A member of the RNA family "Small nucleolar RNA SNORA47" from Albula goreensis, 134 nucleotides long.
The literature on the family includes a 2001 paper in EMBO J by Huttenhofer et al., "RNomics: an experimental approach that identifies 201 candidates for novel, small, non-messenger RNAs in mouse".
The organism belongs to Albula, within Eukaryota.
Rfam classes the family as an H/ACA-box small nucleolar RNA.

[Rfam]
RNA sequence: UGGAGGAUUGAGAAGGUUUGGCAGCUGGAACACAGUGCUACCACAACUGGUUACAACCUCCCAGAUCAAAACUCAGAUACAGCAACUGAACCUGAAAACCCCCUCAGAUUAUGUGCUGUGUGUGUGUACAGCUG
Numbered sequence: 001u002g003g004a005g006g007a008u009u010g011a012g013a014a015g016g017u018u019u020g021g022c023a024g025c026u027g028g029a030a031c032a033c034a035g036u037g038c039u040a041c042c043a044c045a046a047c048u049g050g051u052u053a054c055a056a057c058c059u060c061c062c063a064g065a066u067c068a069a070a071a072c073u074c075a076g077a078u079a080c081a082g083c084a085a086c087u088g089a090a091c092c093u094g095a096a097a098a099c100c101c102c103c104u105c106a107g108a109u110u111a112u113g114u115g116c117u118g119u120g121u122g123u124g125u126g127u128a129c130a131g132c133u134g
Stems, first nucleotide, its partner, number of pairs: 002061005015048004019043003023039003078126003083122002087118002094112001096110002100107001